[Rfam]
RNA: mir-26 microRNA precursor family
RNA sequence: CUGUAACCAUGUUCAAGUAAUCCAGGAUAGGCUGUAUGAAUCAAAAUUGGCCUAUUCUUGAUUACUUGCAUUUGGGUGCAG
Numbered sequence: 001c002u003g004u005a006a007c008c009a010u011g012u013u014c015a016a017g018u019a020a021u022c023c024a025g026g027a028u029a030g031g032c033u034g035u036a037u038g039a040a041u042c043a044a045a046a047u048u049g050g051c052c053u054a055u056u057c058u059u060g061a062u063u064a065c066u067u068g069c070a071u072u073u074g075g076g077u078g079c080a081g
Stems, first nucleotide, its partner, number of pairs: 002080004007075003011071002014068009024058010